[Rfam]
RNA sequence: CCUUCAGUUCUUUCUGUGCUGUUAC
Numbered sequence: 001c002c003u004u005c006a007g008u009u010c011u012u013u014c015u016g017u018g019c020u021g022u023u024a025c
Stems, first nucleotide, its partner, number of pairs: 005021004

Shown here is a 25-nucleotide RNA sequence from Brachypodius melanocephalos, a member of the family "CRISPR RNA direct repeat element". Taxonomically the source falls in Brachypodius (Eukaryota, Sarcopterygii, Amniota, Coelurosauria).